[Rfam]
RNA sequence: UUUAGUAAAGGGCAAACCUGCCAAAAGGCAGGGACGCAAAGCCGAGGGUCUAAAGCGUUUGUUGCGCCAUGACAGCCUAGCUGCCGAU
Numbered sequence: 001u002u003u004a005g006u007a008a009a010g011g012g013c014a015a016a017c018c019u020g021c022c023a024a025a026a027g028g029c030a031g032g033g034a035c036g037c038a039a040a041g042c043c044g045a046g047g048g049u050c051u052a053a054a055g056c057g058u059u060u061g062u063u064g065c066g067c068c069a070u071g072a073c074a075g076c077c078u079a080g081c082u083g084c085c086g087a088u
Base pairs, nucleotide, nucleotide: 012037013036017032018031019030020029021028022027040082041081042080045078046077047076048073049072050071055067056066057065058064

c-di-GMP-I riboswitch aptamer: an 88-nucleotide RNA from Desulfitobacterium dichloroeliminans. The source organism's lineage runs through Bacteria, Bacillati, Eubacteriales, Desulfitobacteriaceae and Desulfitobacterium dichloroeliminans.